[Rfam]
Nucleotides: 286
Base pairs, nucleotide, nucleotide: 001238008049010047011046012045022037023036024035025034026033058273059272060271061270062269068217069216070215071214078092079091080090081089082088093109094108095107096106097105110213111212112211113210114209115208116207130198131197132196133195134194243260244259245258246257247256248255
Number, partner (000 for none) and nucleotide at each position: 001238g002000g003000u004000g005000u006000u007000g008049c009000u010047a011046g012045g013000u014000c015000a016000u017000g018000u019000g020000c021000u022037g023036a024035g025034u026033g027000u028000a029000u030000u031000a032000u033026c034025a035024c036023u037022c038000c039000u040000c041000a042000u043000a044000u045012c046011c047010u048000c049008g050000g051000g052000g053000a054000a055000g056000g057000u058273c059272u060271g061270a062269g063000a064000c065000a066000a067000g068217a069216g070215c071214c072000a073000a074000u075000c076000a077000g078092u079091a080090c081089c082088c083000u084000u085000g086000c087000a088082g089081g090080g091079u092078a093109u094108c095107a096106c097105c098000g099000g100000a101000u102000u103000c104000a105097g106096g107095u108094g109093a110213g111212g112211a113210a114209g115208u116207c117000g118000c119000c120000a121000g122000g123000c124000a125000u126000c127000u128000g129000g130198u131197c132196u133195g134194g135000g136000c137000a138000g139000u140000a141000g142000c143000a144000g145000a146000a147000a148000g149000c150000a151000g152000g153000a154000g155000a156000a157000g158000c159000a160000a161000u162000u163000c164000c165000a166000a167000c168000u169000u170000g171000g172000a173000u174000g175000a176000u177000g178000u179000g180000g181000a182000u183000g184000c185000a186000g187000c188000u189000g190000c191000u192000a193000c194134c195133c196132a197131g198130a199000a200000u201000g202000g203000g204000a205000u206000g207116g208115g209114c210113u211112u212111c213110u214071g215070g216069c217068u218000g219000g220000c221000c222000u223000u224000a225000u226000g227000a228000g229000u230000u231000c232000a233000a234000u235000g236000u237000g238001u239000g240000a241000g242000a243260u244259g245258a246257g247256u248255c249000a250000a251000a252000c253000a254000a255248g256247a257246c258245u259244c260243a261000c262000a263000a264000c265000c266000c267000a268000a269062u270061u271060c272059a273058g274000a275000c276000u277000a278000a279000a280000u281000c282000u283000c284000a285000c286000c
Shown here is a 286-nucleotide sequence from Chiloscyllium punctatum, a member of the family "Nuclear RNase P". Rfam links the family to the GO terms ribonuclease P complex, ribonuclease P activity and tRNA processing. The family's RNA type in Rfam is ribozyme. The source organism's lineage runs through Eukaryota, Deuterostomia, Chordata, Orectolobiformes and Chiloscyllium.